Background: The record is a 73-nucleotide RNA from Ornithorhynchus anatinus, which matches "mir-1421 microRNA precursor family" in Rfam. Gene Ontology terms of the family: miRNA-mediated post-transcriptional gene silencing and RISC complex. The base pairs follow the family's consensus structure, which was predicted with RNAalifold.
RNA sequence: CGUGUGAACAGGUUACACGUGAUGCAGUGUGGUAGUGGAAUAUGCUGCAUCACGUUUGAUCUCCCUACACUGC
Numbered sequence: 001c002g003u004g005u006g007a008a009c010a011g012g013u014u015a016c017a018c019g020u021g022a023u024g025c026a027g028u029g030u031g032g033u034a035g036u037g038g039a040a041u042a043u044g045c046u047g048c049a050u051c052a053c054g055u056u057u058g059a060u061c062u063c064c065c066u067a068c069a070c071u072g073c
Stems, first nucleotide, its partner, number of pairs: 002070005010062006017055004022050005